[Rfam]
RNA sequence: GUAGUGCUGUAGUAGUACAGUAGUGCUGAGUAGUGCUGUACUACUACACCACUACUGUACUACUACAGCACUAC
Numbered sequence: 001g002u003a004g005u006g007c008u009g010u011a012g013u014a015g016u017a018c019a020g021u022a023g024u025g026c027u028g029a030g031u032a033g034u035g036c037u038g039u040a041c042u043a044c045u046a047c048a049c050c051a052c053u054a055c056u057g058u059a060c061u062a063c064u065a066c067a068g069c070a071c072u073a074c
Stems, first nucleotide, its partner, number of pairs: 001074003005070003010067001011064015028049001

Annotation: mir-16 microRNA precursor family: a 74-nucleotide RNA sequence from Cyphomyrmex costatus. The base pairs follow the family's consensus structure, which was predicted with PFOLD. A search with the family's covariance model found it, with a score of 37 bits. NCBI's taxonomy places the organism under Eukaryota, Pancrustacea, Hexapoda, Formicoidea, Cyphomyrmex. A reference for the family is Partin et al. (2020), "Cryo-EM Structures of Human Drosha and DGCR8 in Complex with Primary MicroRNA", Mol Cell.